[Rfam]
RNA sequence: UCCAUGAGUAGAAGCUGUCAGAACCUUUUGGGUUUCGGUCAUUGCUCACGGG
Numbered sequence: 001u002c003c004a005u006g007a008g009u010a011g012a013a014g015c016u017g018u019c020a021g022a023a024c025c026u027u028u029u030g031g032g033u034u035u036c037g038g039u040c041a042u043u044g045c046u047c048a049c050g051g052g
Stems, first nucleotide, its partner, number of pairs: 005048006015037001019038001021035006
RNA: Xanthine riboswitch aptamer (NMT1 RNA)
Organism: Marinobacterium nitratireducens